A member of the RNA family "RAGATH-10 RNA", 86 nucleotides long. The sequence is in the family's curated seed alignment. The family's RNA type in Rfam is small RNA. On this family, see Weinberg et al., Nat Chem Biol 2015: "New classes of self-cleaving ribozymes revealed by comparative genomics analysis".
[Rfam]
RNA sequence: GAAACCUCAUCUUCGAUCGUUCGCCAUCCGGGCGUUGAUCAGUGCUUUUUAGCACGAGCGAGCAUCCGCUCGGAUGAGGAGAAAGU
Numbered sequence: 001g002a003a004a005c006c007u008c009a010u011c012u013u014c015g016a017u018c019g020u021u022c023g024c025c026a027u028c029c030g031g032g033c034g035u036u037g038a039u040c041a042g043u044g045c046u047u048u049u050u051a052g053c054a055c056g057a058g059c060g061a062g063c064a065u066c067c068g069c070u071c072g073g074a075u076g077a078g079g080a081g082a083a084a085g086u
Base pairs, nucleotide, nucleotide: 005079006078007077008076009075010074011073012072016039017038018037022034023033024032025031042055043054044053045052046051056071057070058069059068
Dot-bracket structure: ....((((((((...(((...((((.....))))..)))..(((((....)))))((((........)))))))))))).......